[Rfam]
RNA sequence: UUUAAAUGUAGUUACCGGUUUCCGUAUACAGCUUUUGAUUGUCCGUCUUAUUUAAAAAGUUUAUGAAAAAAAUUUAAAAAAUAAAUGACGCAUAAAGUAUUAUUUAUGUUUUAUCAUCUAAUAACAAUAAAAAAUAUUAAUCAUAAAAAAAAUUAAAAUAAGACAAAUAAUCACUCGUUGAACACGAAAAUUCACAGGUGCAGGGACC
Numbered sequence: 001u002u003u004a005a006a007u008g009u010a011g012u013u014a015c016c017g018g019u020u021u022c023c024g025u026a027u028a029c030a031g032c033u034u035u036u037g038a039u040u041g042u043c044c045g046u047c048u049u050a051u052u053u054a055a056a057a058a059g060u061u062u063a064u065g066a067a068a069a070a071a072a073u074u075u076a077a078a079a080a081a082u083a084a085a086u087g088a089c090g091c092a093u094a095a096a097g098u099a100u101u102a103u104u105u106a107u108g109u110u111u112u113a114u115c116a117u118c119u120a121a122u123a124a125c126a127a128u129a130a131a132a133a134a135u136a137u138u139a140a141u142c143a144u145a146a147a148a149a150a151a152a153u154u155a156a157a158a159u160a161a162g163a164c165a166a167a168u169a170a171u172c173a174c175u176c177g178u179u180g181a182a183c184a185c186g187a188a189a190a191u192u193c194a195c196a197g198g199u200g201c202a203g204g205g206a207c208c
Stems, first nucleotide, its partner, number of pairs: 027182001029180004036173007045164007
RNA: MIR812 microRNA precursor family
Organism: Oryza glumipatula